[Rfam]
RNA sequence: GUUGCAAGUUUGAGGCUACAGCAGAAGCGCUUGUGGCGCAGCCUUGUCAGGUUCCAGUGAAUCUAUAAAUUCUGCU
Numbered sequence: 001g002u003u004g005c006a007a008g009u010u011u012g013a014g015g016c017u018a019c020a021g022c023a024g025a026a027g028c029g030c031u032u033g034u035g036g037c038g039c040a041g042c043c044u045u046g047u048c049a050g051g052u053u054c055c056a057g058u059g060a061a062u063c064u065a066u067a068a069a070u071u072c073u074g075c076u
Stems, first nucleotide, its partner, number of pairs: 013044005020076007027039003049064006

The family of this 76-nucleotide sequence from Crocodylus porosus is "Mammalian CPEB3 ribozyme".
Its family is annotated with RNA nuclease activity in the Gene Ontology.
The mammalian CPEB3 ribozyme is a self cleaving RNA located in the second intron of the CPEB3 gene which belongs to a family of genes regulating messenger RNA polyadenylation.
Pairs were carried over by alignment from the consensus structure, which is taken from published work.